[Rfam]
RNA: Small nucleolar RNA SNORD56
RNA sequence: CCACAAUGACAGGAAGAUUUGUCAUCAACAGCAAUUCAGCUGGUAAGUGUUGAUGUUCUGCUCUGAGUGG
Number, nucleotide and partner (000 for none) at each position: 001c000002c069003a068004c067005a000006a000007u000008g026009a025010c000011a000012g000013g000014a000015a000016g000017a000018u000019u000020u000021g000022u000023c000024a000025u009026c008027a000028a000029c000030a000031g000032c000033a000034a000035u000036u000037c000038a000039g000040c000041u000042g000043g000044u000045a000046a000047g000048u000049g000050u000051u000052g000053a000054u000055g000056u000057u000058c000059u000060g000061c000062u000063c000064u000065g000066a000067g004068u003069g002070g000